Rfam assigns this 58-nucleotide sequence from Oryctolagus cuniculus to the family "Small nucleolar RNA U2-19". Lineage of the source: Eukaryota > Deuterostomia > Sarcopterygii > Glires > Oryctolagus. For this family Rfam cites "Guide RNAs with 5' Caps and Novel Box C/D snoRNA-like Domains for Modification of snRNAs in Metazoa" (Tycowski et al., Curr Biol, 2004). Rfam links the family to the GO terms RNA processing and nucleolus. Rfam 15.1 lists 1,147 matches to the family in 531 species.
RNA sequence: AUAUGAUCAUCAGAAGAACUUCUAGUCUACCUGAUGCAUGAUGUCCAUGAUUUAGAGA
Numbered sequence: 001a002u003a004u005g006a007u008c009a010u011c012a013g014a015a016g017a018a019c020u021u022c023u024a025g026u027c028u029a030c031c032u033g034a035u036g037c038a039u040g041a042u043g044u045c046c047a048u049g050a051u052u053u054a055g056a057g058a
Stems, first nucleotide, its partner, number of pairs: 008036004015028003